[Rfam]
RNA sequence: AACAGCAGCAUUCCUACGAGAUACCUGUUUGCAAAAGCACGAGUAUUCGUUAUUGAAGACAGGUGGGAAAUUCGGUGGAAUUCAGCGAAGCGAUUUAACGCCAGGGGCUUCGGCCCUGAUUUCCGUGAGGAAGUACCAUCGGAAGAUGGUCGUGGGUGUUGUUAUCAGAAAUGUACCAGAUGAAGUCCUUCGGGGCUCCAUUUGGAUGGGAAUGGCAACAGAAGUUUCGUUUGACUUUGCCAAAUUUGGCAAAGGUCUGUUGAGUGCAAUCGUAGGGCGUCGCUCCUUAGUGACGAACCCGAUACCGAUUAUUGUUGGUGUU
Numbered sequence: 001a002a003c004a005g006c007a008g009c010a011u012u013c014c015u016a017c018g019a020g021a022u023a024c025c026u027g028u029u030u031g032c033a034a035a036a037g038c039a040c041g042a043g044u045a046u047u048c049g050u051u052a053u054u055g056a057a058g059a060c061a062g063g064u065g066g067g068a069a070a071u072u073c074g075g076u077g078g079a080a081u082u083c084a085g086c087g088a089a090g091c092g093a094u095u096u097a098a099c100g101c102c103a104g105g106g107g108c109u110u111c112g113g114c115c116c117u118g119a120u121u122u123c124c125g126u127g128a129g130g131a132a133g134u135a136c137c138a139u140c141g142g143a144a145g146a147u148g149g150u151c152g153u154g155g156g157u158g159u160u161g162u163u164a165u166c167a168g169a170a171a172u173g174u175a176c177c178a179g180a181u182g183a184a185g186u187c188c189u190u191c192g193g194g195g196c197u198c199c200a201u202u203u204g205g206a207u208g209g210g211a212a213u214g215g216c217a218a219c220a221g222a223a224g225u226u227u228c229g230u231u232u233g234a235c236u237u238u239g240c241c242a243a244a245u246u247u248g249g250c251a252a253a254g255g256u257c258u259g260u261u262g263a264g265u266g267c268a269a270u271c272g273u274a275g276g277g278c279g280u281c282g283c284u285c286c287u288u289a290g291u292g293a294c295g296a297a298c299c300c301g302a303u304a305c306c307g308a309u310u311a312u313u314g315u316u317g318g319u320g321u322u
Stems, first nucleotide, its partner, number of pairs: 001322004007316003012277007023064005039050004073307005081223003120133005135150006157220007176205007278295007
Overview: The record is a 322-nucleotide sequence from Lachancea fermentati, which matches "Nuclear RNase P" in Rfam. Clan: RNaseP clan. On this family, see Frank and Pace, Annu Rev Biochem 1998: "Ribonuclease P: unity and diversity in a tRNA processing ribozyme". NCBI's taxonomy places the organism under Eukaryota, Opisthokonta, Dikarya, Saccharomycetaceae, Lachancea. The family's RNA type in Rfam is ribozyme.